A member of the RNA family "Small nucleolar RNA SNORD60" from Albula glossodonta, 90 nucleotides long.

[Rfam]
RNA sequence: AGCCUGUGAUGAAGCUCUUAAAAAAUUUUUCUGACACCUCGUAUGAGUACUGCUGCGGCAGUAUCUGAUUAUGUGCACUUGCUGAGGCCG
Numbered sequence: 001a002g003c004c005u006g007u008g009a010u011g012a013a014g015c016u017c018u019u020a021a022a023a024a025a026u027u028u029u030u031c032u033g034a035c036a037c038c039u040c041g042u043a044u045g046a047g048u049a050c051u052g053c054u055g056c057g058g059c060a061g062u063a064u065c066u067g068a069u070u071a072u073g074u075g076c077a078c079u080u081g082c083u084g085a086g087g088c089c090g
Stems, first nucleotide, its partner, number of pairs: 002088003049062005
The literature on the family includes a 1996 paper in Cell by Kiss-Laszlo et al., "Site-specific ribose methylation of preribosomal RNA: a novel function for small nucleolar RNAs".
Pairs were carried over by alignment from the consensus structure, which was predicted with PFOLD.
It scores 58 bits against the family's covariance model.
Its family is annotated with nucleolus and RNA processing in the Gene Ontology.